This 199-nucleotide RNA sequence from Medicago truncatula belongs to the Rfam family "MIR2670 microRNA precursor family". A search with the family's covariance model found it, with a score of 175 bits.
[Rfam]
RNA sequence: UUUGAGGUAAAAAGUGAGUAGCCGAUUUGAGGAAGUGAUCAACCCUUUGGAUAAAAUUAAAUUUGCUUCUUUUUACCCCAAAAACAUUUUACCAUGGGUAAAAAGAAUCUUCUUGGGAUAUAAAAAGAAUCAGAUUUAGAUUUAGCCCAAAGGUUGAUGAUGUAUUUUCCCAAAGAAGGCUGCUCACUAUUUACCCAAG
Numbered sequence: 001u002u003u004g005a006g007g008u009a010a011a012a013a014g015u016g017a018g019u020a021g022c023c024g025a026u027u028u029g030a031g032g033a034a035g036u037g038a039u040c041a042a043c044c045c046u047u048u049g050g051a052u053a054a055a056a057u058u059a060a061a062u063u064u065g066c067u068u069c070u071u072u073u074u075a076c077c078c079c080a081a082a083a084a085c086a087u088u089u090u091a092c093c094a095u096g097g098g099u100a101a102a103a104a105g106a107a108u109c110u111u112c113u114u115g116g117g118a119u120a121u122a123a124a125a126a127g128a129a130u131c132a133g134a135u136u137u138a139g140a141u142u143u144a145g146c147c148c149a150a151a152g153g154u155u156g157a158u159g160a161u162g163u164a165u166u167u168u169c170c171c172a173a174a175g176a177a178g179g180c181u182g183c184u185c186a187c188u189a190u191u192u193a194c195c196c197a198a199g
Stems, first nucleotide, its partner, number of pairs: 003197002006195006013188011026175003031170005038161004042154003046150002049147002052144004057139009067129007074120002077117005085105001087103007